[Rfam]
RNA sequence: UGCAGCUUUGUCAAAUUCAGUGCUCUCUUCUUAGUGGGGUGCACUGGCCAAAAUGGCUGCAACAUUAACUGUAGUUCAUGGGCCCCACGUUUCUUUGCCAUGGACCAUGGGGAUAAAUAUGUACUGCAAACAAAA
Numbered sequence: 001u002g003c004a005g006c007u008u009u010g011u012c013a014a015a016u017u018c019a020g021u022g023c024u025c026u027c028u029u030c031u032u033a034g035u036g037g038g039g040u041g042c043a044c045u046g047g048c049c050a051a052a053a054u055g056g057c058u059g060c061a062a063c064a065u066u067a068a069c070u071g072u073a074g075u076u077c078a079u080g081g082g083c084c085c086c087a088c089g090u091u092u093c094u095u096u097g098c099c100a101u102g103g104a105c106c107a108u109g110g111g112g113a114u115a116a117a118u119a120u121g122u123a124c125u126g127c128a129a130a131c132a133a134a135a
Stems, first nucleotide, its partner, number of pairs: 002060004018046006025039003071127005076121001083112005

Background: A member of the RNA family "Small nucleolar RNA SNORA5" from Parambassis ranga, 135 nucleotides long. From the family's description: ACA5 is a member of the H/ACA class of snoRNA that guide the sites of modification of uridines to pseudouridines. The family has 6 seed sequences and 2,226 matches in Rfam 15.1. The base pairs follow the family's consensus structure, which was predicted with RNAfold.